Description
The record is a 135-nucleotide RNA from Nycticryphes semicollaris, which matches "Small nucleolar RNA SNORA58" in Rfam. Gene Ontology terms of the family: RNA processing and nucleolus. Its Rfam clan is "SNORA44 clan". The source organism's lineage runs through Eukaryota, Chordata, Gnathostomata, Rostratulidae and Nycticryphes.

RNA sequence: CUGCAUUCCAGUAGACCUUAUCUGGUUCUUCCCGUAGCCAGAUGAGGGGGACAGUGAAUGCUACAGGAACCUGGGGUUGCCGUAGGCUGUGAUCAGCCCCCAUGUGGCUGAUUGAACUGCAAAGCUCCAACACGU
Number, nucleotide and partner (000 for none) at each position: 001c000002u000003g061004c060005a059006u058007u057008c056009c000010a000011g000012u000013a000014g000015a000016c047017c046018u045019u044020a043021u042022c041023u040024g039025g000026u000027u000028c000029u000030u000031c000032c000033c000034g000035u000036a000037g000038c000039c024040a023041g022042a021043u020044g019045a018046g017047g016048g000049g000050g000051a000052c000053a000054g000055u000056g008057a007058a006059u005060g004061c003062u000063a000064c000065a000066g000067g000068a000069a000070c000071c000072u000073g128074g127075g126076g125077u000078u124079g000080c000081c000082g120083u119084a000085g000086g000087c000088u000089g000090u000091g000092a000093u111094c110095a109096g108097c107098c000099c000100c000101c000102a000103u000104g000105u000106g000107g097108c096109u095110g094111a093112u000113u000114g000115a000116a000117c000118u000119g083120c082121a000122a000123a000124g078125c076126u075127c074128c073129a000130a000131c000132a000133c000134g000135u000